[Rfam]
RNA: Small nucleolar RNA Z247
RNA sequence: CUCUUUGACUAUGAACUAGUACUAGUCGGUUAUGUCCUUGCAGAACUUGGAUUAGAAUAUUACCCCUUGAUCACUUCCAUUAUAACAUGACUUGAUCCAAAGACCAUUCAAGAAGUUUAUGGUCACCUUCUUAAUUGAGU
Numbered sequence: 001c002u003c004u005u006u007g008a009c010u011a012u013g014a015a016c017u018a019g020u021a022c023u024a025g026u027c028g029g030u031u032a033u034g035u036c037c038u039u040g041c042a043g044a045a046c047u048u049g050g051a052u053u054a055g056a057a058u059a060u061u062a063c064c065c066c067u068u069g070a071u072c073a074c075u076u077c078c079a080u081u082a083u084a085a086c087a088u089g090a091c092u093u094g095a096u097c098c099a100a101a102g103a104c105c106a107u108u109c110a111a112g113a114a115g116u117u118u119a120u121g122g123u124c125a126c127c128u129u130c131u132u133a134a135u136u137g138a139g140u
Stems, first nucleotide, its partner, number of pairs: 004139005092110001094108003
Dot-bracket structure: ...(((((...................................................................................(.(((.........))).)........................))))).